Shown here is a 173-nucleotide RNA sequence from Anopheles darlingi, a member of the family "U11 spliceosomal RNA". Rfam links the family to the GO terms U11 snRNP, mRNA 5'-splice site recognition and pre-mRNA 5'-splice site binding. The literature on the family includes a 2008 paper in J Mol Evol by Marz et al., "Evolution of spliceosomal snRNA genes in metazoan animals". NCBI's taxonomy places the organism under Eukaryota, Protostomia, Dicondylia, Diptera, argyritarsis series.
RNA sequence: UAAAAGGGUGCUUGCCACUACACUCUCUAUGGCACAUCCGCAUGGCCCCGAGCUGGCAUUAGUCCGGCUACGGUGUUCCGUGCCGGUGGGGUAUGGCUAUCAAGACAUAUCCAGCACGUAAUUUUUUUAAUUCUGAAGGCAGUUGACUCGCUACUUCCUGCGUCGACGCCUUC
Number, nucleotide and partner (000 for none) at each position: 001u000002a000003a000004a000005a000006g000007g000008g117009u116010g115011c114012u113013u034014g033015c032016c031017a030018c000019u000020a000021c000022a000023c000024u000025c000026u000027c000028u000029a000030u017031g016032g015033c014034a013035c088036a087037u086038c085039c000040g083041c082042a081043u080044g079045g078046c000047c000048c000049c000050g000051a000052g000053c000054u000055g000056g000057c000058a000059u000060u000061a000062g000063u000064c000065c000066g000067g000068c000069u000070a000071c000072g000073g000074u000075g000076u000077u000078c045079c044080g043081u042082g041083c040084c000085g038086g037087u036088g035089g112090g111091g110092u109093a108094u107095g106096g000097c000098u000099a000100u000101c000102a000103a000104g000105a000106c095107a094108u093109a092110u091111c090112c089113a012114g011115c010116a009117c008118g000119u000120a000121a000122u000123u000124u000125u000126u000127u000128u000129a000130a000131u000132u000133c000134u000135g000136a000137a171138g170139g169140c168141a000142g167143u166144u165145g164146a163147c000148u000149c162150g161151c160152u000153a000154c000155u000156u000157c000158c000159u000160g151161c150162g149163u146164c145165g144166a143167c142168g140169c139170c138171u137172u000173c000